[Rfam]
RNA sequence: GGGCCAGCUAUAGCCCAGCGGUUCCUUUGGUGUUAUGCAGAUUCGUCAUACCUCGCCCUGUCAGGGGUUUUAUACCCGCGGGCACCCCUGGUCCGUUU
Numbered sequence: 001g002g003g004c005c006a007g008c009u010a011u012a013g014c015c016c017a018g019c020g021g022u023u024c025c026u027u028u029g030g031u032g033u034u035a036u037g038c039a040g041a042u043u044c045g046u047c048a049u050a051c052c053u054c055g056c057c058c059u060g061u062c063a064g065g066g067g068u069u070u071u072a073u074a075c076c077c078g079c080g081g082g083c084a085c086c087c088c089u090g091g092u093c094c095g096u097u098u
Stems, first nucleotide, its partner, number of pairs: 002093006013083004018079004027072001029070002
Shown here is a 98-nucleotide sequence from Steatornis caripensis, a member of the family "Vault RNA". The family's RNA type in Rfam is non-coding RNA gene. Pairs were carried over by alignment from the consensus structure, which is taken from published work. The match comes from Rfam's covariance-model search (52 bits). Rfam describes the family as follows. This family of RNAs are found as part of the enigmatic vault ribonucleoprotein complex. The complex consists of a major vault protein (MVP), two minor vault proteins (VPARP and TEP1), and several small untranslated RNA molecules. It has been suggested that the vault complex is involved in drug resistance. Lineage of the source: Eukaryota > Metazoa > Archosauria > Neoaves > Steatornis.